[Rfam]
RNA sequence: UUCCUUAUACAGGGGGUCAUUGUAGAAGCGUGCUCGUCGCGACCCCUGCCAGCCCUUUUCAGGGCUGUAAUUCUACA
Numbered sequence: 001u002u003c004c005u006u007a008u009a010c011a012g013g014g015g016g017u018c019a020u021u022g023u024a025g026a027a028g029c030g031u032g033c034u035c036g037u038c039g040c041g042a043c044c045c046c047u048g049c050c051a052g053c054c055c056u057u058u059u060c061a062g063g064g065c066u067g068u069a070a071u072u073c074u075a076c077a
Stems, first nucleotide, its partner, number of pairs: 013046006021077007028040003050067007

The record is a 77-nucleotide RNA from Parnassius apollo, which matches "Mammalian CPEB3 ribozyme" in Rfam. The source organism's lineage runs through Eukaryota, Eumetazoa, Protostomia, Neolepidoptera and Parnassius. Pairs were carried over by alignment from the consensus structure, which is taken from published work.